[Rfam]
RNA sequence: GGUAUUCCUUAUCUGUGUCUAAUUACGUUGAAUGUACUGGAGCCUGUCUCUAUGUAUGCUCCCCUCGAUCGGGGUUGGUUAACACACAUAAAGACAGGCCCAAAGUUCGAUGCCGCGUCUUUUAAAAUA
Numbered sequence: 001g002g003u004a005u006u007c008c009u010u011a012u013c014u015g016u017g018u019c020u021a022a023u024u025a026c027g028u029u030g031a032a033u034g035u036a037c038u039g040g041a042g043c044c045u046g047u048c049u050c051u052a053u054g055u056a057u058g059c060u061c062c063c064c065u066c067g068a069u070c071g072g073g074g075u076u077g078g079u080u081a082a083c084a085c086a087c088a089u090a091a092a093g094a095c096a097g098g099c100c101c102a103a104a105g106u107u108c109g110a111u112g113c114c115g116c117g118u119c120u121u122u123u124a125a126a127a128u129a
Stems, first nucleotide, its partner, number of pairs: 001114004025106002028103001040101001042099007051090005057084002060081001
Dot-bracket structure: ((((....................((.(...........(.(((((((..(((((.((.(....................).)).)))))..))))))).).).))....))))...............